[Rfam]
Description: This 132-nucleotide sequence from Tychaedon coryphoeus belongs to the Rfam family "Small Cajal body specific RNA 8". The source organism's lineage runs through Eukaryota, Vertebrata, Dipnotetrapodomorpha, Coelurosauria and Tychaedon.
RNA sequence: UGGGAGGCUGAUACACAACUAGGGCUAAAGCUGCUCUGAUUGUCACACUGUCCUCCCUAUGGUAAAAAUUGCUUUCUGAUGACCGGGACGAAUUGAGGGAAAUGGUAACGGACAGAUAUGGAGCACACAAUA
Numbered sequence: 001u002g003g004g005a006g007g008c009u010g011a012u013a014c015a016c017a018a019c020u021a022g023g024g025c026u027a028a029a030g031c032u033g034c035u036c037u038g039a040u041u042g043u044c045a046c047a048c049u050g051u052c053c054u055c056c057c058u059a060u061g062g063u064a065a066a067a068a069u070u071g072c073u074u075u076c077u078g079a080u081g082a083c084c085g086g087g088a089c090g091a092a093u094u095g096a097g098g099g100a101a102a103u104g105g106u107a108a109c110g111g112a113c114a115g116a117u118a119u120g121g122a123g124c125a126c127a128c129a130a131u132a
Stems, first nucleotide, its partner, number of pairs: 002057006015043004022036004070125006083111003088106002091103001

A search with the family's covariance model found it, with a score of 117 bits. For this family Rfam cites "Cajal body-specific small nuclear RNAs: a novel class of 2'-O-methylation and pseudouridylation guide RNAs" (Darzacq et al., EMBO J, 2002).